[Rfam]
RNA sequence: UGCAAAUUUUUAGGCCAAAGCAGAAGUGUUCACUGCAUGGCACUGUAAGAUUACAAAGAAUCUGUGCAUUCUGAU
Numbered sequence: 001u002g003c004a005a006a007u008u009u010u011u012a013g014g015c016c017a018a019a020g021c022a023g024a025a026g027u028g029u030u031c032a033c034u035g036c037a038u039g040g041c042a043c044u045g046u047a048a049g050a051u052u053a054c055a056a057a058g059a060a061u062c063u064g065u066g067c068a069u070u071c072u073g074a075u
Base pairs, nucleotide, nucleotide: 013043014041015040016039019075021073022072023071024070025069026038027037028036048063049062050061051060052059